[Rfam]
RNA sequence: GGGGAGCAUCUAUGAGGUGAGGUGUUGCCCGAUACAAUCUUCCCACAGUAAAACUCUUGUCAUAAUCUGCAAACUCUUGUCAUAAUCUGCUUGAGGUACUAGAGAGAGUUUUUCUAGUUGUUGAUCAGGAGGCACAUCA
Numbered sequence: 001g002g003g004g005a006g007c008a009u010c011u012a013u014g015a016g017g018u019g020a021g022g023u024g025u026u027g028c029c030c031g032a033u034a035c036a037a038u039c040u041u042c043c044c045a046c047a048g049u050a051a052a053a054c055u056c057u058u059g060u061c062a063u064a065a066u067c068u069g070c071a072a073a074c075u076c077u078u079g080u081c082a083u084a085a086u087c088u089g090c091u092u093g094a095g096g097u098a099c100u101a102g103a104g105a106g107a108g109u110u111u112u113u114c115u116a117g118u119u120g121u122u123g124a125u126c127a128g129g130a131g132g133c134a135c136a137u138c139a
Stems, first nucleotide, its partner, number of pairs: 001030003005026007055132003089118003093114004098109003
About this RNA: Small nucleolar RNA snoR104: a 139-nucleotide RNA sequence from Capsicum baccatum. The family's RNA type in Rfam is H/ACA-box small nucleolar RNA. Rfam 15.1 lists 612 matches to the family in 228 species. Rfam links the family to the GO terms nucleolus and RNA processing. A search with the family's covariance model found it, with a score of 64 bits. The family's consensus secondary structure was predicted with WAR.